The record is a 106-nucleotide RNA from Austrofundulus limnaeus, which matches "Vault RNA" in Rfam. Rfam classes the family as a non-coding RNA gene.

[Rfam]
RNA sequence: GCGCCGGUUUAGCCUAGUGGUUACUUCAAACAAUUCAAAGUGUCCGUGCUCCGUGGUGCCAACCGUGGAGUGCGGGGUUCAACCACAGGUGCUGUCCGGUGUUUUU
Numbered sequence: 001g002c003g004c005c006g007g008u009u010u011a012g013c014c015u016a017g018u019g020g021u022u023a024c025u026u027c028a029a030a031c032a033a034u035u036c037a038a039a040g041u042g043u044c045c046g047u048g049c050u051c052c053g054u055g056g057u058g059c060c061a062a063c064c065g066u067g068g069a070g071u072g073c074g075g076g077g078u079u080c081a082a083c084c085a086c087a088g089g090u091g092c093u094g095u096c097c098g099g100u101g102u103u104u105u106u
Stems, first nucleotide, its partner, number of pairs: 002101006012090004017086004025082002028079002